[Rfam]
RNA sequence: GGAUCGAUGAAAACAACUGUCUGAGGACGCUGAGGGACUAAUACAAAUGGCAAUCUGAGGUCC
Dot-bracket structure: (((((.....................................................)))))
A member of the RNA family "Small nucleolar RNA SNORD109A" from Nannospalax galili, 63 nucleotides long. About the family: Humans have two copies of the SNORD109 gene, SNORD109A and SNORD109B. It is annotated as a C/D-box small nucleolar RNA. A reference for the family is Runte et al. (2001), "The IC-SNURF-SNRPN transcript serves as a host for multiple small nucleolar RNA species and as an antisense RNA for UBE3A", Hum Mol Genet. Lineage of the source: Eukaryota > Vertebrata > Sarcopterygii > Boreoeutheria > Nannospalax.